[Rfam]
RNA: Histone 3' UTR stem-loop
RNA sequence: CCAACGGCUCUUUUCAGAGCCAUCCAACUAAUCUCUAAAAGGAGCU
Dot-bracket structure: .....((((((....)))))).........................